Background: The record is a 114-nucleotide RNA sequence from Haloechinothrix alba, which matches "Glycine riboswitch aptamer" in Rfam. The source organism's lineage runs through Bacteria, Bacillati, Actinomycetota, Pseudonocardiaceae and Haloechinothrix. A search with the family's covariance model found it, with a score of 37 bits.
[Rfam]
RNA sequence: UUGCCUCUGGAAAGAGGGUCGUGCGGGCCUGCCCCGCGACGACCCCGCCGAAGGUGCAAGCUCGGCCGGGAGCCGGGUGAACCUCUCAGGCGCCCGUAGUACGGGCAUAGACAG
Numbered sequence: 001u002u003g004c005c006u007c008u009g010g011a012a013a014g015a016g017g018g019u020c021g022u023g024c025g026g027g028c029c030u031g032c033c034c035c036g037c038g039a040c041g042a043c044c045c046c047g048c049c050g051a052a053g054g055u056g057c058a059a060g061c062u063c064g065g066c067c068g069g070g071a072g073c074c075g076g077g078u079g080a081a082c083c084u085c086u087c088a089g090g091c092g093c094c095c096g097u098a099g100u101a102c103g104g105g106c107a108u109a110g111a112c113a114g
Stems, first nucleotide, its partner, number of pairs: 007114003016045007047091003050087002054085001056083001060078006